[Rfam]
RNA: c-di-AMP riboswitch aptamer (ydaO/yuaA leader)
RNA sequence: UGGAGUCAUCCGCCUAAUCGGUGGUCGAGUGGGCAGCUCGAACAUCGAACCGGGGACCCAGGUGUGUUGGGGUGAAUCCCUCUCGGCCGCAAGGUCGUUGGGGUAGGGCCGAACUUCCCGGCCCGAACCCGUCAGCUAACUCGGUCGGCGGUGUGGGCAGGAAGA
Numbered sequence: 001u002g003g004a005g006u007c008a009u010c011c012g013c014c015u016a017a018u019c020g021g022u023g024g025u026c027g028a029g030u031g032g033g034c035a036g037c038u039c040g041a042a043c044a045u046c047g048a049a050c051c052g053g054g055g056a057c058c059c060a061g062g063u064g065u066g067u068u069g070g071g072g073u074g075a076a077u078c079c080c081u082c083u084c085g086g087c088c089g090c091a092a093g094g095u096c097g098u099u100g101g102g103g104u105a106g107g108g109c110c111g112a113a114c115u116u117c118c119c120g121g122c123c124c125g126a127a128c129c130c131g132u133c134a135g136c137u138a139a140c141u142c143g144g145u146c147g148g149c150g151g152u153g154u155g156g157g158c159a160g161g162a163a164g165a
Base pairs, nucleotide, nucleotide: 011150012149013148014147018048019047020046021045022044023043049145050144051143052142053141054140059069060068070130071129072128078103079102080101081100106124107123108122109121